This 110-nucleotide sequence from Priestia veravalensis belongs to the Rfam family "PyrR binding site". The match comes from Rfam's covariance-model search (64 bits). NCBI's taxonomy places the organism under Bacteria, Bacillati, Bacillota, Caryophanales, Priestia.
RNA sequence: ACGCCUUUUAAAAGAAAUCCAGAGAGGUUUCCAAGGGUGUAGUACAGCGCGUCAAAGACGAUGCUUGUUUUCUCACACCCUUUCUAUAUCAAGAAAGGGUGUUUUUUAUU
Numbered sequence: 001a002c003g004c005c006u007u008u009u010a011a012a013a014g015a016a017a018u019c020c021a022g023a024g025a026g027g028u029u030u031c032c033a034a035g036g037g038u039g040u041a042g043u044a045c046a047g048c049g050c051g052u053c054a055a056a057g058a059c060g061a062u063g064c065u066u067g068u069u070u071u072c073u074c075a076c077a078c079c080c081u082u083u084c085u086a087u088a089u090c091a092a093g094a095a096a097g098g099g100u101g102u103u104u105u106u107u108a109u110u
Base pairs, nucleotide, nucleotide: 003038004037005036006035007034008033014031015030016029017028018027019026044069047066049064050063051062052061053060075102076101077100078099079098080097081096082095083094084093085092
Pairs were carried over by alignment from the consensus structure, which is taken from published work.
From the family's description: This family represents the PyrR binding site and terminator structure. This RNA structure is found upstream of a variety of genes involved in pyrimidine biosynthesis and transport.